Shown here is a 142-nucleotide RNA sequence from Gossypium raimondii, a member of the family "MIR8670 microRNA precursor family".
It is one of the family's seed sequences.
[Rfam]
RNA sequence: CACCGAAGCUAAAGUUGGGCCCCUGUUGGUGCGGGAGCGUCGGUAAAAAAGUGUCCCCAUUUCAGACAUCAACUGUUUUAUCCCGACACUUUUUUUACCCGACGCUCCCGCACCAACAGGGGCCCAACUUUAGCUUCGGUGC
Numbered sequence: 001c002a003c004c005g006a007a008g009c010u011a012a013a014g015u016u017g018g019g020c021c022c023c024u025g026u027u028g029g030u031g032c033g034g035g036a037g038c039g040u041c042g043g044u045a046a047a048a049a050a051g052u053g054u055c056c057c058c059a060u061u062u063c064a065g066a067c068a069u070c071a072a073c074u075g076u077u078u079u080a081u082c083c084c085g086a087c088a089c090u091u092u093u094u095u096u097a098c099c100c101g102a103c104g105c106u107c108c109c110g111c112a113c114c115a116a117c118a119g120g121g122g123c124c125c126a127a128c129u130u131u132a133g134c135u136u137c138g139g140u141g142c
Stems, first nucleotide, its partner, number of pairs: 001141043046096005053089002057085001064078005